[Rfam]
RNA sequence: GGCAGUUCUUGGGUGACACAUCUCGGAAUCGGGCUUCCUCUUCUCUGAUACUGGGUGUGUCACCAGAGAACCACA
Numbered sequence: 001g002g003c004a005g006u007u008c009u010u011g012g013g014u015g016a017c018a019c020a021u022c023u024c025g026g027a028a029u030c031g032g033g034c035u036u037c038c039u040c041u042u043c044u045c046u047g048a049u050a051c052u053g054g055g056u057g058u059g060u061c062a063c064c065a066g067a068g069a070a071c072c073a074c075a
Stems, first nucleotide, its partner, number of pairs: 002074001005071006012064006019057005025052002028049006

This 75-nucleotide RNA sequence from Pipistrellus kuhlii belongs to the Rfam family "mir-9223 microRNA precursor family". The base pairs follow the family's consensus structure, which was predicted with RNAalifold. The source organism's lineage runs through Eukaryota, Chordata, Craniata, Dipnotetrapodomorpha and Pipistrellus. Rfam links the family to the GO terms RISC complex and miRNA-mediated post-transcriptional gene silencing.